RNA sequence: CUGGAGGAUCACUUGAGCCCAGGAAUUUGAGACCAGCCUGGGCAACAAAGUGAGACUCCAU
Numbered sequence: 001c002u003g004g005a006g007g008a009u010c011a012c013u014u015g016a017g018c019c020c021a022g023g024a025a026u027u028u029g030a031g032a033c034c035a036g037c038c039u040g041g042g043c044a045a046c047a048a049a050g051u052g053a054g055a056c057u058c059c060a061u
Stems, first nucleotide, its partner, number of pairs: 009053006017043007027036003

The record is a 61-nucleotide sequence from Pan troglodytes, which matches "mir-1285 microRNA precursor family" in Rfam.